[Rfam]
RNA sequence: ACAAGGGGAUGACCUAUGAAUUGACAGCCAGUUAUUUUCCAAAUCUGCCUGUCAGUUCUGUAGGCCACUGCUGUGU
Numbered sequence: 001a002c003a004a005g006g007g008g009a010u011g012a013c014c015u016a017u018g019a020a021u022u023g024a025c026a027g028c029c030a031g032u033u034a035u036u037u038u039c040c041a042a043a044u045c046u047g048c049c050u051g052u053c054a055g056u057u058c059u060g061u062a063g064g065c066c067a068c069u070g071c072u073g074u075g076u
Stems, first nucleotide, its partner, number of pairs: 001076003005072002008069001010067002013064004018058010029047003
A member of the RNA family "mir-192/215 microRNA precursor family" from Menidia menidia, 76 nucleotides long. On this family, see Lagos-Quintana et al., RNA 2003: "New microRNAs from mouse and human". Pairs were carried over by alignment from the consensus structure, which was predicted with PFOLD. NCBI's taxonomy places the organism under Eukaryota, Actinopterygii, Percomorphaceae, Atheriniformes, Menidia. From the family's description: This family represents the human microRNA (miRNA) precursors mir-192 and mir-215. Animal miRNAs are transcribed as ~70nt precursors and subsequently processed by the Dicer enzyme to give a ~22nt product.